The record is a 73-nucleotide sequence from Chryseobacterium sp. Leaf404, which matches "tRNA" in Rfam. NCBI's taxonomy places the organism under Bacteria, Pseudomonadati, Bacteroidota, Flavobacteriales, Chryseobacterium. By type it is a transfer RNA.
RNA sequence: UGAUUCAUAGUGUAAUUGGUCAGCACACAAGACUUUGACUCUUGUUGUUCAGGUUCAAGUCCUGAUGAAUCAA
Numbered sequence: 001u002g003a004u005u006c007a008u009a010g011u012g013u014a015a016u017u018g019g020u021c022a023g024c025a026c027a028c029a030a031g032a033c034u035u036u037g038a039c040u041c042u043u044g045u046u047g048u049u050c051a052g053g054u055u056c057a058a059g060u061c062c063u064g065a066u067g068a069a070u071c072a073a
Base pairs, nucleotide, nucleotide: 001072002071003070004069005068006067007066010026011025012024013023028044029043030042031041032040049065050064051063052062053061
Dot-bracket structure: (((((((..((((.........)))).(((((.......)))))....(((((.......)))))))))))).